[Rfam]
RNA sequence: UCUUCAUUUCACAUGCUCUCUCGCAGGUCAGAGAGUCGAGAUAGUGUGCGAGAUGAAGAGA
Numbered sequence: 001u002c003u004u005c006a007u008u009u010c011a012c013a014u015g016c017u018c019u020c021u022c023g024c025a026g027g028u029c030a031g032a033g034a035g036u037c038g039a040g041a042u043a044g045u046g047u048g049c050g051a052g053a054u055g056a057a058g059a060g061a
Stems, first nucleotide, its partner, number of pairs: 001059007010050001012048006019041004
A member of the RNA family "mir-8364 microRNA precursor family" from Pristionchus pacificus, 61 nucleotides long. Its family is annotated with RISC complex and miRNA-mediated post-transcriptional gene silencing in the Gene Ontology. Pairs were carried over by alignment from the consensus structure, which was predicted with RNAalifold. Lineage of the source: Eukaryota > Metazoa > Protostomia > Rhabditida > Pristionchus. It scores 77 bits against the family's covariance model.